RNA sequence: ACAACAUUCGGACCGUCGGUCUAUAGAGCAAUAUCACCCGCUCGGUGGAAGACCUUCCCUUCGUCGU
Numbered sequence: 001a002c003a004a005c006a007u008u009c010g011g012a013c014c015g016u017c018g019g020u021c022u023a024u025a026g027a028g029c030a031a032u033a034u035c036a037c038c039c040g041c042u043c044g045g046u047g048g049a050a051g052a053c054c055u056u057c058c059c060u061u062c063g064u065c066g067u
Base pairs, nucleotide, nucleotide: 004064005063010058011057012056015053016052017051020049021048022047023046024045026043027042028041029040
RNA: mir-2774 microRNA precursor family